[Rfam]
RNA sequence: UGGAGAAGGGGAGCACGUGCAAUUGAUGACAUAUGUAUGAAAUUGCACGUGCCCUGCUUCUCCAGC
Numbered sequence: 001u002g003g004a005g006a007a008g009g010g011g012a013g014c015a016c017g018u019g020c021a022a023u024u025g026a027u028g029a030c031a032u033a034u035g036u037a038u039g040a041a042a043u044u045g046c047a048c049g050u051g052c053c054c055u056g057c058u059u060c061u062c063c064a065g066c
Base pairs, nucleotide, nucleotide: 001064002063003062004061005060006059007058008057010055011054013052014051015050016049017048018047019046020045021044022043023042024041029036030035
RNA: MIR164 microRNA precursor family
Organism: Acer yangbiense